[Rfam]
RNA sequence: GACUGUCCAUGAAGUUAGAACACUAAAUCCCUGGGAUGUGUUUUAGUUGAUUUAGUCUCAGGU
Numbered sequence: 001g002a003c004u005g006u007c008c009a010u011g012a013a014g015u016u017a018g019a020a021c022a023c024u025a026a027a028u029c030c031c032u033g034g035g036a037u038g039u040g041u042u043u044u045a046g047u048u049g050a051u052u053u054a055g056u057c058u059c060a061g062g063u
Stems, first nucleotide, its partner, number of pairs: 001063001003061003014047010028036003
The record is a 63-nucleotide sequence from Mytilus coruscus, which matches "Selenocysteine insertion sequence 1" in Rfam.
Rfam describes the family as follows. The incorporation of selenocysteine into a protein sequence is directed by an in-frame UGA codon (usually a stop codon) within the coding region of the mRNA. Selenoprotein mRNAs contain a conserved secondary structure in the 3' UTR that is required for the distinction of UGA stop from UGA selenocysteine. The selenocysteine insertion sequence (SECIS) is around 60 nt in length and adopts a hairpin structure which is sufficiently well-defined and conserved to act as a computational screen for selenoprotein genes.
The match comes from Rfam's covariance-model search (37 bits).
Taxonomically the source falls in Mytilus (Eukaryota, Lophotrochozoa, Mollusca, Pteriomorphia).
By type it is a cis-regulatory element.